The record is an 87-nucleotide RNA from Beta vulgaris, which matches "Small nucleolar RNA Z102/R77" in Rfam. NCBI's taxonomy places the organism under Eukaryota, Viridiplantae, Tracheophyta, Euphyllophyta, Beta vulgaris.
RNA sequence: AUACGAUAUGAUGAAUGAACUAUGUUUUCCUAUUGGUUUGAUUCGCCGAUAUGAUGGCAACAAUGUAUUAGCUCUAUCUGAUCAUGU
Numbered sequence: 001a002u003a004c005g006a007u008a009u010g011a012u013g014a015a016u017g018a019a020c021u022a023u024g025u026u027u028u029c030c031u032a033u034u035g036g037u038u039u040g041a042u043u044c045g046c047c048g049a050u051a052u053g054a055u056g057g058c059a060a061c062a063a064u065g066u067a068u069u070a071g072c073u074c075u076a077u078c079u080g081a082u083c084a085u086g087u
Base pairs, nucleotide, nucleotide: 002086003085005083040061045058046057047056
Pairs were carried over by alignment from the consensus structure, which was predicted with PFOLD.
Its family is annotated with nucleolus and RNA processing in the Gene Ontology.
The family is grouped with related families in Rfam's "SNORD44 clan".